[Rfam]
RNA: Guanidine-I riboswitch aptamer
RNA sequence: UAAAAAGUUUUCUAGGGUUCCGCAGAAGGAGUUUUCUGGCCUGGUCCGAGAGAAGACGCACAUGAACUUGUGUACACGGAAGGAUAAAAGCCUGGGAGAU
Numbered sequence: 001u002a003a004a005a006a007g008u009u010u011u012c013u014a015g016g017g018u019u020c021c022g023c024a025g026a027a028g029g030a031g032u033u034u035u036c037u038g039g040c041c042u043g044g045u046c047c048g049a050g051a052g053a054a055g056a057c058g059c060a061c062a063u064g065a066a067c068u069u070g071u072g073u074a075c076a077c078g079g080a081a082g083g084a085u086a087a088a089a090g091c092c093u094g095g096g097a098g099a100u
Stems, first nucleotide, its partner, number of pairs: 007057006015047002020044002022041001023038006058073005075095001077098001081093003